A member of the RNA family "Small nucleolar RNA U2-19" from Vicugna pacos, 80 nucleotides long. For this family Rfam cites "Guide RNAs with 5' Caps and Novel Box C/D snoRNA-like Domains for Modification of snRNAs in Metazoa" (Tycowski et al., Curr Biol, 2004). The family has 29 seed sequences and 1,147 matches in Rfam 15.1. The family's RNA type in Rfam is C/D-box small nucleolar RNA. Pairs were carried over by alignment from the consensus structure, which is taken from published work. The organism belongs to Vicugna, within Eukaryota.
RNA sequence: GAUCAGUGAUGAAAAUAGCCAAAUCUGAGCAUCAGAAGACUUUCUAGUCUACUUGAUGCAUGAUCUCUGUACUUCUGAGA
Numbered sequence: 001g002a003u004c005a006g007u008g009a010u011g012a013a014a015a016u017a018g019c020c021a022a023a024u025c026u027g028a029g030c031a032u033c034a035g036a037a038g039a040c041u042u043u044c045u046a047g048u049c050u051a052c053u054u055g056a057u058g059c060a061u062g063a064u065c066u067c068u069g070u071a072c073u074u075c076u077g078a079g080a
Stems, first nucleotide, its partner, number of pairs: 029059005037050004
It scores 104 bits against the family's covariance model.